[Rfam]
RNA sequence: UCGCUCAGGUCCUUCCUCAGUUAACCGCACCAAUCUUUCGCCUUUUAUUGAAGAUUGCCGUGGGGAAGGACACCAUAAUGAGCCUCUAGGCCAAUUGUCUGGGAGGCCUCGCCCGUUUGAGCGAGGC
Numbered sequence: 001u002c003g004c005u006c007a008g009g010u011c012c013u014u015c016c017u018c019a020g021u022u023a024a025c026c027g028c029a030c031c032a033a034u035c036u037u038u039c040g041c042c043u044u045u046u047a048u049u050g051a052a053g054a055u056u057g058c059c060g061u062g063g064g065g066a067a068g069g070a071c072a073c074c075a076u077a078a079u080g081a082g083c084c085u086c087u088a089g090g091c092c093a094a095u096u097g098u099c100u101g102g103g104a105g106g107c108c109u110c111g112c113c114c115g116u117u118u119g120a121g122c123g124a125g126g127c
Stems, first nucleotide, its partner, number of pairs: 003083004009071011031057008102127001107126006